[Rfam]
RNA sequence: UUAGUUAUUUCUCAGGCCAUAGCAGAAGUACUUAUGGCCAUGUCAGGUUCCAACAAACCUGCAAAUUUUGCU
Number, nucleotide and partner (000 for none) at each position: 001u000002u000003a000004g000005u000006u000007a000008u000009u000010u000011c000012u000013c000014a000015g039016g038017c037018c036019a000020u000021a072022g071023c070024a069025g068026a067027a066028g035029u034030a000031c000032u000033u000034a029035u028036g018037g017038c016039c015040a000041u000042g000043u000044c061045a060046g059047g058048u057049u056050c000051c000052a000053a000054c000055a000056a049057a048058c047059c046060u045061g044062c000063a000064a000065a000066u027067u026068u025069u024070g023071c022072u021
Mammalian CPEB3 ribozyme: a 72-nucleotide RNA from Alligator mississippiensis. The source organism's lineage runs through Eukaryota, Deuterostomia, Vertebrata, Teleostomi and Alligator. Its family is annotated with RNA nuclease activity in the Gene Ontology.